[Rfam]
RNA sequence: GUGAACUACCCGCUACCCUAAAGGGAUAGCGGCUUCAGAAAUUGAAGCUGAGUUUACCAGACUAAGUAUUCAGAAACGGAUAAUACGAUAGUUAGGUCAUGAUACCUUCGGUUGACGCAUCAGACCGUUGCUCUAUCGCUUAUAUUUAAGUUUAGCCGAGGUAAGGCUAUUGUGAUAUAAGUGUAAAAAGCCUAAUUAUCAUUGUCGAGAUGAGGUCGGA
Numbered sequence: 001g002u003g004a005a006c007u008a009c010c011c012g013c014u015a016c017c018c019u020a021a022a023g024g025g026a027u028a029g030c031g032g033c034u035u036c037a038g039a040a041a042u043u044g045a046a047g048c049u050g051a052g053u054u055u056a057c058c059a060g061a062c063u064a065a066g067u068a069u070u071c072a073g074a075a076a077c078g079g080a081u082a083a084u085a086c087g088a089u090a091g092u093u094a095g096g097u098c099a100u101g102a103u104a105c106c107u108u109c110g111g112u113u114g115a116c117g118c119a120u121c122a123g124a125c126c127g128u129u130g131c132u133c134u135a136u137c138g139c140u141u142a143u144a145u146u147u148a149a150g151u152u153u154a155g156c157c158g159a160g161g162u163a164a165g166g167c168u169a170u171u172g173u174g175a176u177a178u179a180a181g182u183g184u185a186a187a188a189a190g191c192c193u194a195a196u197u198a199u200c201a202u203u204g205u206c207g208a209g210a211u212g213a214g215g216u217c218g219g220a
Base pairs, nucleotide, nucleotide: 001057002056003055004054005053006052007051010032011031013029014028017024018023033047034046035045036044060206061205062204064202065084067082068081069080070079071078087200088199089198090197091196092195093194094193095192096191097190102136103135106130109127110126111125112124113123116219119216120215121214138182139181140180141179142178143177144176145175146174150173151172153169154168155167156166157165